Shown here is a 60-nucleotide RNA from Heyndrickxia shackletonii, a member of the family "Fluoride riboswitch aptamer (crcB RNA motif)".
The family has 289 seed sequences and 2,293 matches in Rfam 15.1.
NCBI's taxonomy places the organism under Bacteria, Bacillati, Bacillota, Bacillaceae, Heyndrickxia.
RNA sequence: AACUCAAUAGGCGAUGGGGUUCGCCAAAAACGCUGAAAAGCUAAUGACUCCUACCAGUAU
Numbered sequence: 001a002a003c004u005c006a007a008u009a010g011g012c013g014a015u016g017g018g019g020u021u022c023g024c025c026a027a028a029a030a031c032g033c034u035g036a037a038a039a040g041c042u043a044a045u046g047a048c049u050c051c052u053a054c055c056a057g058u059a060u
Stems, first nucleotide, its partner, number of pairs: 010025004016051006032041003